This 395-nucleotide RNA sequence from Ecytonucleospora hepatopenaei belongs to the Rfam family "Nuclear RNase P".
RNA sequence: ACAGCUGGAAGCCUCUGUUAGGAGAUUUUUACAAAUUUUUCUUAGGAAGGUCUGAGACGGAGCGCUGCGUGCUAUCGAGGAAACUCCUUAGAAGCCAUCGUAAUGAUAUGCAUUUAAUGAUGUAGUCGCCUGUAAUAGAAAACAGCAAGUCGGUAGACCUCUUCCAUAGUACUCCAGGAUUUCAUGAUGAUUUCUUCUAGGAAUCUAAGCUAUGCCUGUUGAAGCAUUUGAGAAGAUGACAAGUCUUUCAUUUAUUUUUGCCUGUUGAAAUUCAGCAGGAACACAAAAAUUUAUGCGAGGUGCGUUUGCAUGGAAAGGGGCGAUGAUCCACUUAAAGCAGUUUAAUACAGGGGGUUCCAGUUGGAAUAACAAAAUUCAGACUACUCUUCAGCAGU
Numbered sequence: 001a002c003a004g005c006u007g008g009a010a011g012c013c014u015c016u017g018u019u020a021g022g023a024g025a026u027u028u029u030u031a032c033a034a035a036u037u038u039u040u041c042u043u044a045g046g047a048a049g050g051u052c053u054g055a056g057a058c059g060g061a062g063c064g065c066u067g068c069g070u071g072c073u074a075u076c077g078a079g080g081a082a083a084c085u086c087c088u089u090a091g092a093a094g095c096c097a098u099c100g101u102a103a104u105g106a107u108a109u110g111c112a113u114u115u116a117a118u119g120a121u122g123u124a125g126u127c128g129c130c131u132g133u134a135a136u137a138g139a140a141a142a143c144a145g146c147a148a149g150u151c152g153g154u155a156g157a158c159c160u161c162u163u164c165c166a167u168a169g170u171a172c173u174c175c176a177g178g179a180u181u182u183c184a185u186g187a188u189g190a191u192u193u194c195u196u197c198u199a200g201g202a203a204u205c206u207a208a209g210c211u212a213u214g215c216c217u218g219u220u221g222a223a224g225c226a227u228u229u230g231a232g233a234a235g236a237u238g239a240c241a242a243g244u245c246u247u248u249c250a251u252u253u254a255u256u257u258u259u260g261c262c263u264g265u266u267g268a269a270a271u272u273c274a275g276c277a278g279g280a281a282c283a284c285a286a287a288a289a290u291u292u293a294u295g296c297g298a299g300g301u302g303c304g305u306u307u308g309c310a311u312g313g314a315a316a317g318g319g320g321c322g323a324u325g326a327u328c329c330a331c332u333u334a335a336a337g338c339a340g341u342u343u344a345a346u347a348c349a350g351g352g353g354g355u356u357c358c359a360g361u362u363g364g365a366a367u368a369a370c371a372a373a374a375u376u377c378a379g380a381c382u383a384c385u386c387u388u389c390a391g392c393a394g395u
Base pairs, nucleotide, nucleotide: 001395002394004392007389008388009387012353013352014351015350016349017348018347020043021042022041023040024039052379053378054377055376056375060328061327063325076105109124110123111122112121113120114119125324126323127322128321129320130319131318145309146308147307148306149305150304354367355366356365357364358363
Rfam's curators write: Ribonuclease P (RNase P) is a ubiquitous endoribonuclease, found in archaea, bacteria and eukarya as well as chloroplasts and mitochondria.